[Rfam]
RNA: Eukaryotic large subunit ribosomal RNA, nucleotides 2221 to 2639
RNA sequence: AAGUCGGCAAGUCAGAUCCGUAACUUCGGGAUAAGGAUUGGCUCUAAGGGCUGGGUCGGUCGGGCUGGGGUGCGAAGCGGGGCUGGGCUCGCGCCGCGGCUGGGGGAGCAGUCGCUCCGUCGCCCUCCUCUCUCCGCCGCCGGAAGCGCGGUGCGCGGCCCGCCUCGCGGGGCUCGCGUCUGCGGCGCCUCGCGCGUCGUACGGCGUGGGUUUUCGCGGGGCGGUGUCCGCCGCCGCGUGGAAGGCGGGCCGGCGGGGGGAUGUGGUCGGCGGUGGCUGGCGGCGCCUCCGGCCGCGCGCCGGGCCCUUCUCGCGGAUCACCUCAGCUGCGGUGCCCGUCGGGGUCCCCUUCGCGGGGGUGCCCCGGCGGGUCGCCUCGGCUGGCGCCUAGCAGCUGACUUAGAACUGGUGCGGACCAG
Numbered sequence: 001a002a003g004u005c006g007g008c009a010a011g012u013c014a015g016a017u018c019c020g021u022a023a024c025u026u027c028g029g030g031a032u033a034a035g036g037a038u039u040g041g042c043u044c045u046a047a048g049g050g051c052u053g054g055g056u057c058g059g060u061c062g063g064g065c066u067g068g069g070g071u072g073c074g075a076a077g078c079g080g081g082g083c084u085g086g087g088c089u090c091g092c093g094c095c096g097c098g099g100c101u102g103g104g105g106g107a108g109c110a111g112u113c114g115c116u117c118c119g120u121c122g123c124c125c126u127c128c129u130c131u132c133u134c135c136g137c138c139g140c141c142g143g144a145a146g147c148g149c150g151g152u153g154c155g156c157g158g159c160c161c162g163c164c165u166c167g168c169g170g171g172g173c174u175c176g177c178g179u180c181u182g183c184g185g186c187g188c189c190u191c192g193c194g195c196g197u198c199g200u201a202c203g204g205c206g207u208g209g210g211u212u213u214u215c216g217c218g219g220g221g222c223g224g225u226g227u228c229c230g231c232c233g234c235c236g237c238g239u240g241g242a243a244g245g246c247g248g249g250c251c252g253g254c255g256g257g258g259g260g261a262u263g264u265g266g267u268c269g270g271c272g273g274u275g276g277c278u279g280g281c282g283g284c285g286c287c288u289c290c291g292g293c294c295g296c297g298c299g300c301c302g303g304g305c306c307c308u309u310c311u312c313g314c315g316g317a318u319c320a321c322c323u324c325a326g327c328u329g330c331g332g333u334g335c336c337c338g339u340c341g342g343g344g345u346c347c348c349c350u351u352c353g354c355g356g357g358g359g360u361g362c363c364c365c366g367g368c369g370g371g372u373c374g375c376c377u378c379g380g381c382u383g384g385c386g387c388c389u390a391g392c393a394g395c396u397g398a399c400u401u402a403g404a405a406c407u408g409g410u411g412c413g414g415a416c417c418a419g
Stems, first nucleotide, its partner, number of pairs: 015039005024029001040407002043404006049396005055385009064327003068323004077314004085307007095297012108284001408412001